[Rfam]
RNA sequence: AGCCUUUGUGUUGCUCAUUCACUUUUGGAAACUAGUGCUGAAUGUGAUGUCAAAAAAGCACAAGCAAAUGCUUUUGCAGCCUUUUCCUACCCUUAUGUUUUGAAUAUUGGGUGUAGGAGCUGCAUAAGUGACAUCA
Numbered sequence: 001a002g003c004c005u006u007u008g009u010g011u012u013g014c015u016c017a018u019u020c021a022c023u024u025u026u027g028g029a030a031a032c033u034a035g036u037g038c039u040g041a042a043u044g045u046g047a048u049g050u051c052a053a054a055a056a057a058g059c060a061c062a063a064g065c066a067a068a069u070g071c072u073u074u075u076g077c078a079g080c081c082u083u084u085u086c087c088u089a090c091c092c093u094u095a096u097g098u099u100u101u102g103a104a105u106a107u108u109g110g111g112u113g114u115a116g117g118a119g120c121u122g123c124a125u126a127a128g129u130g131a132c133a134u135c136a
Stems, first nucleotide, its partner, number of pairs: 002059001004058004009052002012049002015046001016044005021036003070129004074124001076123005085118006091111002
Dot-bracket structure: .(.((((.((.((.(((((((((..........)))...))))).).)).))..)))))..........(((((.(((((....((((((((.................)).)))))))))))).)))).......
Rfam assigns this 136-nucleotide RNA from Jaculus jaculus to the family "Small nucleolar RNA SNORA13".
The base pairs follow the family's consensus structure, which was predicted with CMfinder.
A search with the family's covariance model found it, with a score of 96 bits.
Taxonomically the source falls in Jaculus (Eukaryota, Eumetazoa, Craniata, Dipodinae).
By type it is an H/ACA-box small nucleolar RNA.
Clan: SNORA13 clan.
Rfam's curators write: ACA13 is a member of the H/ACA class of snoRNA that guide the sites of modification of uridines to pseudouridines.